[Rfam]
RNA sequence: GAGAUAUGAUGAAUACCUUAUUGGUCCGUGUUUCUGAACAAACCGUGACCUGAUAAACUCUACCAAUCUCUGAUCUC
Numbered sequence: 001g002a003g004a005u006a007u008g009a010u011g012a013a014u015a016c017c018u019u020a021u022u023g024g025u026c027c028g029u030g031u032u033u034c035u036g037a038a039c040a041a042a043c044c045g046u047g048a049c050c051u052g053a054u055a056a057a058c059u060c061u062a063c064c065a066a067u068c069u070c071u072g073a074u075c076u077c
Base pairs, nucleotide, nucleotide: 001077002076003075004074